[Rfam]
RNA sequence: CUCCACCCCGAUGACACAAUAUCCAGCAGCGGUAUUGUGUAAUGACCUGCAGUGUCAACGGAUGGUGGAG
Numbered sequence: 001c002u003c004c005a006c007c008c009c010g011a012u013g014a015c016a017c018a019a020u021a022u023c024c025a026g027c028a029g030c031g032g033u034a035u036u037g038u039g040u041a042a043u044g045a046c047c048u049g050c051a052g053u054g055u056c057a058a059c060g061g062a063u064g065g066u067g068g069a070g
Stems, first nucleotide, its partner, number of pairs: 001070007009061001018036006043057004

The record is a 70-nucleotide sequence from Diaporthe ampelina, which matches "bZIP non canonical Hac1/Xbp1 intron" in Rfam. Rfam describes the family as follows. bZIP intron RNA is a non-canonical intron that was first reported in HAC1 gene in yeast and XBP1 gene in Metazoa. The match comes from Rfam's covariance-model search (44 bits). The organism belongs to Diaporthe, within Eukaryota.